[Rfam]
RNA sequence: UAGUUUUAUGCUAUGUCAAACUUCUCUAACUUUGACCAAGUAUAUAGAAAAAUAUAUUGAUGUCUACAGUACCAAAUAAAUGUACAUAAAAACAUAUCUCAUAAUGGGUUUUAAGAAAUUAAUUUGAUGUUGUAGAUGUUACUGCAUUUUUUCCAUAAACUUGGUCAAAGUUGGAGAGGUUUGACUUAGGACAAAACUAA
Numbered sequence: 001u002a003g004u005u006u007u008a009u010g011c012u013a014u015g016u017c018a019a020a021c022u023u024c025u026c027u028a029a030c031u032u033u034g035a036c037c038a039a040g041u042a043u044a045u046a047g048a049a050a051a052a053u054a055u056a057u058u059g060a061u062g063u064c065u066a067c068a069g070u071a072c073c074a075a076a077u078a079a080a081u082g083u084a085c086a087u088a089a090a091a092a093c094a095u096a097u098c099u100c101a102u103a104a105u106g107g108g109u110u111u112u113a114a115g116a117a118a119u120u121a122a123u124u125u126g127a128u129g130u131u132g133u134a135g136a137u138g139u140u141a142c143u144g145c146a147u148u149u150u151u152u153c154c155a156u157a158a159a160c161u162u163g164g165u166c167a168a169a170g171u172u173g174g175a176g177a178g179g180u181u182u183g184a185c186u187u188a189g190g191a192c193a194a195a196a197c198u199a200a
Stems, first nucleotide, its partner, number of pairs: 005195003009191001011189003015185012031169005045155001047153006055144002059140010073126005
RNA: MIR1435 microRNA precursor family
Organism: Panicum miliaceum